RNA sequence: AGCACUUGUGUGUAUUUUUGUUUAACUUGUGGACAAAGAUUUAUAGACAGGGGAAAAAACUAAAUCCUCUUUUGCAACCCAGAACUCAUGAAACAUAUAUGCCUCUCAAUAAAUGUGAAUGUAUAUAAACAUUUGCUUUCAGAUGUGUAUUUUACUGCAUACAUAUAAGAAGGUAUAUG
Dot-bracket structure: ..(.(((((.(..((((((((....(....).))))))))....).))))).)..........((.((.(((((.....(((........................................................................)))........))))).)).))...